mir-2774 microRNA precursor family: a 67-nucleotide sequence from Bombyx mori.
The match comes from Rfam's covariance-model search (58 bits).
The organism belongs to Bombyx, within Eukaryota.

[Rfam]
RNA sequence: ACAACAUUUGGAUCGUCGGUCUCCCAAGAAAUUUUACCCGCUCAGUGAAAGAUCUUCCCUUUGUCGU
Numbered sequence: 001a002c003a004a005c006a007u008u009u010g011g012a013u014c015g016u017c018g019g020u021c022u023c024c025c026a027a028g029a030a031a032u033u034u035u036a037c038c039c040g041c042u043c044a045g046u047g048a049a050a051g052a053u054c055u056u057c058c059c060u061u062u063g064u065c066g067u
Stems, first nucleotide, its partner, number of pairs: 004064003010058003015053003020049001022047001024045001027042002
The family's consensus secondary structure was predicted with RNAalifold.